[Rfam]
RNA sequence: CGUCGCGGUCCGGCACGACGUAAAGGAAAAAGACCGGGGGAAGUACCCUCCCCUCCCCCACCCUCUCCCCCGGCGAACCGCCGCCGGGCCCCUCACCCGGAUGGGUGAUCUGUGCCAACUGGGCUGGAUUUGGAGCCGGUUGCCUGGCAUAUGCUCACGCUCACAACCCCAGACAUGAGUCGGCCCCCGGCCGGGACGGCAAUCCCGAUCGAGGGCCUGACCACCGAGGAAGGCACAAACUUCCCG
Numbered sequence: 001c002g003u004c005g006c007g008g009u010c011c012g013g014c015a016c017g018a019c020g021u022a023a024a025g026g027a028a029a030a031a032g033a034c035c036g037g038g039g040g041a042a043g044u045a046c047c048c049u050c051c052c053c054u055c056c057c058c059c060a061c062c063c064u065c066u067c068c069c070c071c072g073g074c075g076a077a078c079c080g081c082c083g084c085c086g087g088g089c090c091c092c093u094c095a096c097c098c099g100g101a102u103g104g105g106u107g108a109u110c111u112g113u114g115c116c117a118a119c120u121g122g123g124c125u126g127g128a129u130u131u132g133g134a135g136c137c138g139g140u141u142g143c144c145u146g147g148c149a150u151a152u153g154c155u156c157a158c159g160c161u162c163a164c165a166a167c168c169c170c171a172g173a174c175a176u177g178a179g180u181c182g183g184c185c186c187c188c189g190g191c192c193g194g195g196a197c198g199g200c201a202a203u204c205c206c207g208a209u210c211g212a213g214g215g216c217c218u219g220a221c222c223a224c225c226g227a228g229g230a231a232g233g234c235a236c237a238a239a240c241u242u243c244c245c246g
Stems, first nucleotide, its partner, number of pairs: 002225001005222001011083004093108006123160002125157003182217005188211002193206004228244005
RNA: Streptomyces sRNA 4677
Organism: Streptomyces termitum